[Rfam]
RNA sequence: GGUUUCCUUCGGGGUCGGGUGAAAGUCCCAACCGGCGGUGAUCCGCCUGCGAGCGCCAGAGCACAUGCUCCGCCUCCGCAGCGCGGCAAGUCCGUGACCCGAUUGCCAUUUCCCCCAAGCUCUCGAGAGCCUGCGGCGCAAGGCAAGCGGUGGACCUGGUGAGAUUCCAGGACCGACAGUACAGUCUGGAUGGGAGAAGGAGCCG
Numbered sequence: 001g002g003u004u005u006c007c008u009u010c011g012g013g014g015u016c017g018g019g020u021g022a023a024a025g026u027c028c029c030a031a032c033c034g035g036c037g038g039u040g041a042u043c044c045g046c047c048u049g050c051g052a053g054c055g056c057c058a059g060a061g062c063a064c065a066u067g068c069u070c071c072g073c074c075u076c077c078g079c080a081g082c083g084c085g086g087c088a089a090g091u092c093c094g095u096g097a098c099c100c101g102a103u104u105g106c107c108a109u110u111u112c113c114c115c116c117a118a119g120c121u122c123u124c125g126a127g128a129g130c131c132u133g134c135g136g137c138g139c140a141a142g143g144c145a146a147g148c149g150g151u152g153g154a155c156c157u158g159g160u161g162a163g164a165u166u167c168c169a170g171g172a173c174c175g176a177c178a179g180u181a182c183a184g185u186c187u188g189g190a191u192g193g194g195a196g197a198a199g200g201a202g203c204c205g
Stems, first nucleotide, its partner, number of pairs: 004202007017029003031185002033175002035095004099150002155171005177188003
Dot-bracket structure: ...(((((((......(((.......))).[[((((((.....................................................))))...((................................................))....(((((.......)))))..)).(((....]]))).......)))))))...
About this RNA:
FMN riboswitch aptamer (RFN element): a 205-nucleotide RNA sequence from Paenibacillus sp. D9. A search with the family's covariance model found it, with a score of 94 bits. The family's consensus secondary structure is taken from published work. Rfam 15.1 lists 6,230 matches to the family in 5,120 species.